[Rfam]
RNase MRP: a 279-nucleotide RNA sequence from Absidia repens. RNase MRP is an enzymatically active ribonucleoprotein with two distinct roles in eukaryotes. Taxonomically the source falls in Absidia (Eukaryota, Mucoromycota, Mucoromycotina, Mucorales). The match comes from Rfam's covariance-model search (63 bits).

RNA sequence: AGCAACGAAGAAGAUCUGCAUGUUUGACGCACCACACACACGGGGGUUUUAUACUCAUUAUAAAUUGCGUUAGGGAAGUUCUCCAGACAUGUGUACCUGUAAUGGGUUAUUGAAAGCAGCCUUUCUUAAGGUUGUGGUAUUCAAUUAUGCCAAAUUAUCAGCUAAGAUAGCUGUGGUAUGGUUGGGUAUCCAAUAGUUCUUGUCAUAGGAAUAGGUAUUGCGGAUCUUGGUAAAAUUUAUUUUAUCAUGAACUCAAUGGAGGCUACUCUCUUUUGUUGC
Number, nucleotide and partner (000 for none) at each position: 001a000002g279003c278004a277005a276006c275007g274008a273009a271010g270011a269012a000013g000014a225015u224016c223017u222018g221019c220020a000021u000022g000023u000024u073025u072026g071027a070028c069029g068030c067031a000032c000033c000034a000035c000036a000037c000038a000039c000040a000041c000042g000043g000044g056045g055046g054047u053048u000049u000050u000051a000052u000053a047054c046055u045056c044057a000058u000059u000060a000061u000062a000063a000064a000065u000066u000067g030068c029069g028070u027071u026072a025073g024074g000075g000076a000077a264078g263079u262080u000081c261082u260083c259084c258085a000086g000087a000088c000089a000090u000091g000092u000093g000094u000095a000096c000097c000098u000099g000100u000101a000102a000103u000104g000105g000106g000107u000108u000109a000110u000111u000112g000113a000114a000115a000116g000117c000118a133119g132120c131121c130122u129123u128124u000125c000126u000127u000128a123129a122130g121131g120132u119133u118134g000135u192136g191137g190138u000139a000140u000141u185142c184143a183144a182145u181146u180147a179148u178149g177150c176151c000152a000153a000154a000155u000156u000157a000158u000159c173160a172161g171162c170163u000164a000165a000166g000167a000168u000169a000170g162171c161172u160173g159174u000175g000176g150177u149178a148179u147180g146181g145182u144183u143184g142185g141186g000187u000188a000189u000190c137191c136192a135193a000194u000195a000196g000197u000198u000199c000200u000201u000202g000203u000204c000205a000206u000207a000208g000209g000210a000211a000212u000213a000214g000215g000216u000217a000218u000219u000220g019221c018222g017223g016224a015225u014226c000227u000228u247229g246230g245231u244232a243233a242234a241235a000236u000237u000238u000239a000240u000241u234242u233243u232244a231245u230246c229247a228248u000249g000250a000251a000252c000253u000254c000255a000256a000257u000258g084259g083260a082261g081262g079263c078264u077265a000266c000267u000268c000269u011270c010271u009272u000273u008274u007275g006276u005277u004278g003279c002